[Rfam]
Nucleotides: 114
Stems, first nucleotide, its partner, number of pairs: 001114002005110001008107004013102004018097001021095002037077004050062002
Number, partner (000 for none) and nucleotide at each position: 001114g002113u003000a004000g005110g006000u007000u008107a009106c010105g011104g012000g013102g014101a015100u016099a017000u018097g019000g020000c021095a022094c023000c024000c025000a026000a027000a028000a029000c030000a031000u032000a033000u034000g035000c036000u037077g038076g039075u040074a041000u042000g043000u044000u045000c046000g047000u048000g049000g050062g051061u052000g053000c054000u055000u056000u057000g058000u059000g060000u061051g062050c063000g064000c065000u066000a067000g068000c069000u070000g071000g072000a073000g074040u075039g076038c077037u078000a079000a080000c081000c082000a083000u084000c085000g086000c087000g088000c089000u090000g091000c092000c093000c094022g095021u096000g097018c098000c099016u100015g101014u102013u103000a104011u105010u106009g107008u108000c109000u110005c111000a112000a113002a114001c

The family of this 114-nucleotide RNA from Stegodyphus mimosarum is "Potassium channel RNA editing signal". Rfam classes the family as a cis-regulatory element. Rfam 15.1 lists 14,095 matches to the family in 1,000 species. Its family is annotated with adenosine to inosine editing in the Gene Ontology. This family represents a group of sequences related to the human potassium channel Kv1.1 hairpin element which directs the efficient modification of an adenosine to inosine by an adenosine deaminase acting on RNA (ADAR). Pairs were carried over by alignment from the consensus structure, which is taken from published work.